[Rfam]
RNA sequence: AGCGAAAAAGGCAAACCCGUCGUGAGGCGGGGACGCAAAGCCACGGGACCCACGAGGGUCAGCCGGGCUACCGAAC
Dot-bracket structure: ..((......((...((((((....))))))..[))..((((.((((((........))).])))))))..))...
RNA: c-di-GMP-I-GGC riboswitch aptamer
Organism: Cellulomonas carbonis